[Rfam]
RNA: Burkholderia RNA 7 (anti-hemB)
Organism: Solimicrobium silvestre
RNA sequence: UCCCCUGCUUCACUUCCCUGAGCGGGCACCUCUAUGGUGUUAACCCCCAGUGCAUUUAUGUACUGGGGUUUUUUUAU
Numbered sequence: 001u002c003c004c005c006u007g008c009u010u011c012a013c014u015u016c017c018c019u020g021a022g023c024g025g026g027c028a029c030c031u032c033u034a035u036g037g038u039g040u041u042a043a044c045c046c047c048c049a050g051u052g053c054a055u056u057u058a059u060g061u062a063c064u065g066g067g068g069u070u071u072u073u074u075u076a077u
Stems, first nucleotide, its partner, number of pairs: 004026006028038003045068008